[Rfam]
RNA: TPP riboswitch aptamer (THI element)
Organism: Cetobacterium ceti
RNA sequence: CAUGAUUGCUAGGGGAGCCUUCGGGCUGAGAAGUUUUUAACUGACCCUUUGAACCUGAUCUAGUUAACACUAGCGGAGGAAAGCAGAGCUAAUUUCUU
Numbered sequence: 001c002a003u004g005a006u007u008g009c010u011a012g013g014g015g016a017g018c019c020u021u022c023g024g025g026c027u028g029a030g031a032a033g034u035u036u037u038u039a040a041c042u043g044a045c046c047c048u049u050u051g052a053a054c055c056u057g058a059u060c061u062a063g064u065u066a067a068c069a070c071u072a073g074c075g076g077a078g079g080a081a082a083g084c085a086g087a088g089c090u091a092a093u094u095u096c097u098u
Stems, first nucleotide, its partner, number of pairs: 006086005011048004016042001017026003033041003054079003060073004